Annotation:
Hepatitis C virus stem-loop SL2531 and SL2549AU: a 72-nucleotide RNA from Orthohepacivirus hominis.
[Rfam]
RNA sequence: UCCUAGCGGACGCACGCGUGUGCGUCGCCCUUUGGCUGAUGCUGAUGAUAUCACAAGCAGAAGCGGCCUUGG
Dot-bracket structure: .....(((.(((....))).)))((...(.(..(..((...............))..)..).)..)).....
Rfam classes the family as a cis-regulatory element. Pairs were carried over by alignment from the consensus structure, which was predicted with RNAfold. Rfam's curators put it in the seed alignment. For this family Rfam cites "The Coding Region of the HCV Genome Contains a Network of Regulatory RNA Structures" (Pirakitikulr et al., Mol Cell, 2016).